[Rfam]
RNA sequence: CCCACGGCUUGCGACGUGGGCUUUAUUCUAUCGCCCUUACAGGGCU
Dot-bracket structure: ((((((.(....).))))))............(((((...))))).
RNA: Acido-Lenti-1 RNA